c-di-AMP riboswitch aptamer (ydaO/yuaA leader): a 124-nucleotide sequence from Mesobacillus subterraneus. It scores 98 bits against the family's covariance model. Pairs were carried over by alignment from the consensus structure. NCBI's taxonomy places the organism under Bacteria, Bacillota, Caryophanales, Bacillaceae, Mesobacillus.
RNA sequence: AGAUAAAAAUAGCUUAAUCAUUUUGAGCGGGGGAACCAUUUUUUGGGGUGAAUCUAUUCAUGUAGAAGGAGACUCUCAACUCCUAAUCCGUCAGCUAACCUCGUAAGCGUUAUUGAGAGUGGAU
Dot-bracket structure: ...........(((...(((...)))((((((....((.....))(((.....((((....))))..((((........))))...))).........)))))).)))................